[Rfam]
RNA: Small nucleolar RNA SNORD26
RNA sequence: CUGCGGGGAUGAUCACGCUGAACUCUCUCUUGCUGAUGGCUCAGUGGAGACUCUUGAAUAAAAAAUCUGAGUGGC
Numbered sequence: 001c002u003g004c005g006g007g008g009a010u011g012a013u014c015a016c017g018c019u020g021a022a023c024u025c026u027c028u029c030u031u032g033c034u035g036a037u038g039g040c041u042c043a044g045u046g047g048a049g050a051c052u053c054u055u056g057a058a059u060a061a062a063a064a065a066u067c068u069g070a071g072u073g074g075c
Base pairs, nucleotide, nucleotide: 001074002073003072004071